Glycine riboswitch aptamer: a 101-nucleotide sequence. This family represents the bacterial glycine riboswitch. The pairing is the family consensus, mapped onto this sequence.
RNA sequence: CGACGCAUGGUGGGAGAAGCGGUGCGCUCCUUUGAACGGAACGCAACGCUGCCGAAGGCGCAACGCCCGUAAUCGCUCAGGCCCCAUACCAUCCUGCGUAC
Numbered sequence: 001c002g003a004c005g006c007a008u009g010g011u012g013g014g015a016g017a018a019g020c021g022g023u024g025c026g027c028u029c030c031u032u033u034g035a036a037c038g039g040a041a042c043g044c045a046a047c048g049c050u051g052c053c054g055a056a057g058g059c060g061c062a063a064c065g066c067c068c069g070u071a072a073u074c075g076c077u078c079a080g081g082c083c084c085c086a087u088a089c090c091a092u093c094c095u096g097c098g099u100a101c
Base pairs, nucleotide, nucleotide: 006096007095009093010092011091012090013089019049020048021047051082052081053080054078055077058076059075060074064069